[Rfam]
RNA: MIR812 microRNA precursor family
RNA sequence: AAUAAGUGCAGUUUUACACUAUUCAUCUCCAAAGUUUGAUCGUUCGUCUUAUUUGAAAAUUUUUUAUGAUUACUAUUUUUAUUGUUAUUACAUGAUAAAACAUGAAUAGUAUUUUAUGUGUGACUAAUUUUUUUAAAAAUUUUCAUAAAUUUUUCAAAUAAGACGGACGGUUAAACGUUGGACACGGAUUUUCACGGCUGCACUUAUU
Numbered sequence: 001a002a003u004a005a006g007u008g009c010a011g012u013u014u015u016a017c018a019c020u021a022u023u024c025a026u027c028u029c030c031a032a033a034g035u036u037u038g039a040u041c042g043u044u045c046g047u048c049u050u051a052u053u054u055g056a057a058a059a060u061u062u063u064u065u066a067u068g069a070u071u072a073c074u075a076u077u078u079u080u081a082u083u084g085u086u087a088u089u090a091c092a093u094g095a096u097a098a099a100a101c102a103u104g105a106a107u108a109g110u111a112u113u114u115u116a117u118g119u120g121u122g123a124c125u126a127a128u129u130u131u132u133u134u135a136a137a138a139a140u141u142u143u144c145a146u147a148a149a150u151u152u153u154u155c156a157a158a159u160a161a162g163a164c165g166g167a168c169g170g171u172u173a174a175a176c177g178u179u180g181g182a183c184a185c186g187g188a189u190u191u192u193c194a195c196g197g198c199u200g201c202a203c204u205u206a207u208u
Base pairs, nucleotide, nucleotide: 028182029181030180031179032178035175036174037173038172039171040170041169042168043167044166045165046164047163048162049161050160051159052158